RNA sequence: AUCGUAUAAAGGCAAACCUAGUGAAAACUAGCGACGCAAAGCUAUAGGGGCUACGGUAAUCUACCAUGCCAGCCAGCUUCCGGU
Numbered sequence: 001a002u003c004g005u006a007u008a009a010a011g012g013c014a015a016a017c018c019u020a021g022u023g024a025a026a027a028c029u030a031g032c033g034a035c036g037c038a039a040a041g042c043u044a045u046a047g048g049g050g051c052u053a054c055g056g057u058a059a060u061c062u063a064c065c066a067u068g069c070c071a072g073c074c075a076g077c078u079u080c081c082g083g084u
Stems, first nucleotide, its partner, number of pairs: 012037002018031005040078004047074002049070003056064003
This 84-nucleotide sequence from Paenibacillus baekrokdamisoli belongs to the Rfam family "c-di-GMP-I riboswitch aptamer". Gene Ontology term of the family: cyclic-di-GMP binding. A search with the family's covariance model found it, with a score of 68 bits.